[Rfam]
RNA: folP RNA
RNA sequence: CAUAUGGAGGAAAUGCCAUGGCAAAGGGUCAUCCCUUUGAGCCGGAUUGAUGAUGAUUUCCCUGAUGAUCAAUCCGGCUGCGGUGCGGUCAUACUCCUCAAU
Dot-bracket structure: ..(((((........))))).(((((((....)))))))((((.(((((((.((.(......).)).))))))).)))).......................